[Rfam]
RNA sequence: GUGAAGCCACUUUGCCGAGAGCCGAUCUGGGGCUCUCGGCAAACCUUCCCCUUUGCCGAGAGCCCCCAGAUCCGGCUCUCGGUAAAGUUAUUUUUUCAAA
Numbered sequence: 001g002u003g004a005a006g007c008c009a010c011u012u013u014g015c016c017g018a019g020a021g022c023c024g025a026u027c028u029g030g031g032g033c034u035c036u037c038g039g040c041a042a043a044c045c046u047u048c049c050c051c052u053u054u055g056c057c058g059a060g061a062g063c064c065c066c067c068a069g070a071u072c073c074g075g076c077u078c079u080c081g082g083u084a085a086a087g088u089u090a091u092u093u094u095u096u097c098a099a100a
Stems, first nucleotide, its partner, number of pairs: 010087007018079002021076004025071001030065013